[Rfam]
RNA sequence: AAAUCUAAUGGCGAUGACGUUCGCCAAAAUAAUUGAGCAAUCAAUUGAUGACGUCUACUGGCUU
Numbered sequence: 001a002a003a004u005c006u007a008a009u010g011g012c013g014a015u016g017a018c019g020u021u022c023g024c025c026a027a028a029a030u031a032a033u034u035g036a037g038c039a040a041u042c043a044a045u046u047g048a049u050g051a052c053g054u055c056u057a058c059u060g061g062c063u064u
Base pairs, nucleotide, nucleotide: 010025011024012023013022016055017054018053019052020051021050
RNA: Fluoride riboswitch aptamer (crcB RNA motif)